[Rfam]
RNA sequence: ACAAAUUCACUCUGCACCCAGCUGCAGCCCCAGGGGGGGUGCUUUUUCUGUAUUCUAUAGAAACAUCCCCAAGUGGUGUGAUCACCUUAACCCAUCAAGGGCAAUGCAACCUCGUGGGGAUGCGGGG
Numbered sequence: 001a002c003a004a005a006u007u008c009a010c011u012c013u014g015c016a017c018c019c020a021g022c023u024g025c026a027g028c029c030c031c032a033g034g035g036g037g038g039g040u041g042c043u044u045u046u047u048c049u050g051u052a053u054u055c056u057a058u059a060g061a062a063a064c065a066u067c068c069c070c071a072a073g074u075g076g077u078g079u080g081a082u083c084a085c086c087u088u089a090a091c092c093c094a095u096c097a098a099g100g101g102c103a104a105u106g107c108a109a110c111c112u113c114g115u116g117g118g119g120a121u122g123c124g125g126g127g
Stems, first nucleotide, its partner, number of pairs: 003053001005051002014042006022033003068118004073113001075110001077108004085101003
Dot-bracket structure: ..(.((.......((((((..(((......)))...)))))).......)).)..............((((.(.(.((((....(((...........)))...)))).)..).)))).........
The record is a 127-nucleotide RNA sequence from Neogale vison, which matches "Small nucleolar RNA SNORA77" in Rfam.
NCBI's taxonomy places the organism under Eukaryota, Deuterostomia, Teleostomi, Tetrapoda, Neogale.
Rfam's curators write: ACA63 (SNORA77) is a member of the H/ACA class of snoRNAs that guide the sites of modification of uridines to pseudouridines. This snoRNA was identified by computational screening and its expression in mouse experimentally verified by Northern blot and primer extension analysis. ACA63 is proposed to guide the pseudouridylation of 18S rRNA U814.
Gene Ontology terms of the family: nucleolus and RNA processing.
It scores 70 bits against the family's covariance model.